c-di-GMP-I riboswitch aptamer: a 90-nucleotide RNA from Brevibacillus fulvus. Taxonomically the source falls in Brevibacillus (Bacteria, Bacillati, Bacillota, Paenibacillaceae). It scores 80 bits against the family's covariance model. The base pairs follow the family's consensus structure, which is taken from published work.

[Rfam]
RNA sequence: AUACGAUAAUGGCAAACUCUGCCGAAAGGGGAGGACGCAAAGCCACGGGUCUAAUGGAUGGCAACAUCCGAUGAUCGCCGGGCUGCCGAA
Numbered sequence: 001a002u003a004c005g006a007u008a009a010u011g012g013c014a015a016a017c018u019c020u021g022c023c024g025a026a027a028g029g030g031g032a033g034g035a036c037g038c039a040a041a042g043c044c045a046c047g048g049g050u051c052u053a054a055u056g057g058a059u060g061g062c063a064a065c066a067u068c069c070g071a072u073g074a075u076c077g078c079c080g081g082g083c084u085g086c087c088g089a090a
Stems, first nucleotide, its partner, number of pairs: 012038002017033004022029002041084004046080003049075003056069004
Dot-bracket structure: ...........((...((((.((....))))))...))..((((.((((((....((((......))))...)))..)))))))......